About this RNA: This 78-nucleotide RNA from Gallus gallus belongs to the Rfam family "Small nucleolar RNA SNORD74". Taxonomically the source falls in Gallus (Eukaryota, Sauria, Archosauria, Coelurosauria). The family's RNA type in Rfam is C/D-box small nucleolar RNA. The literature on the family includes a 2002 paper in Mol Cell Biol by Galardi et al., "Purified box C/D snoRNPs are able to reproduce site-specific 2'-O-methylation of target RNA in vitro". The family has 22 seed sequences and 929 matches in Rfam 15.1.

[Rfam]
RNA sequence: GUGCCCGCACAUGAUGAAAACUAUGUUGGUAGGGACAUCUGAGAGGCUGAUGAGUACCAACAUAUCUGAGCUGGGCAU
Numbered sequence: 001g002u003g004c005c006c007g008c009a010c011a012u013g014a015u016g017a018a019a020a021c022u023a024u025g026u027u028g029g030u031a032g033g034g035a036c037a038u039c040u041g042a043g044a045g046g047c048u049g050a051u052g053a054g055u056a057c058c059a060a061c062a063u064a065u066c067u068g069a070g071c072u073g074g075g076c077a078u
Stems, first nucleotide, its partner, number of pairs: 001078005
Its Rfam clan is "SNORD74 clan". The family's consensus secondary structure was predicted with PFOLD.